[Rfam]
RNA: Small Cajal body specific RNA 24
Organism: Tupaia belangeri
RNA sequence: UGGACAUUUAUGUGUGGUCAGUUUCUUCUCCGAGUGAAGAGUACGCUUUAUAAAUGUCCUAGAGAAAUACAGUAGCUUUCUGUCCACCCUUUGCAAGUGAGAGGGGUGGGUCGUUCCACUACUGACAGCC
Numbered sequence: 001u002g003g004a005c006a007u008u009u010a011u012g013u014g015u016g017g018u019c020a021g022u023u024u025c026u027u028c029u030c031c032g033a034g035u036g037a038a039g040a041g042u043a044c045g046c047u048u049u050a051u052a053a054a055u056g057u058c059c060u061a062g063a064g065a066a067a068u069a070c071a072g073u074a075g076c077u078u079u080c081u082g083u084c085c086a087c088c089c090u091u092u093g094c095a096a097g098u099g100a101g102a103g104g105g106g107u108g109g110g111u112c113g114u115u116c117c118a119c120u121a122c123u124g125a126c127a128g129c130c
Base pairs, nucleotide, nucleotide: 002059003058004057005056006055007054008053009052010051011050021044022043024040025039026038027037028036070124071123072122073121074120075119089104090103091102092101
Dot-bracket structure: .((((((((((.........((.(((((.......)))))..)).....))))))))))..........((((((.............((((........))))..............))))))......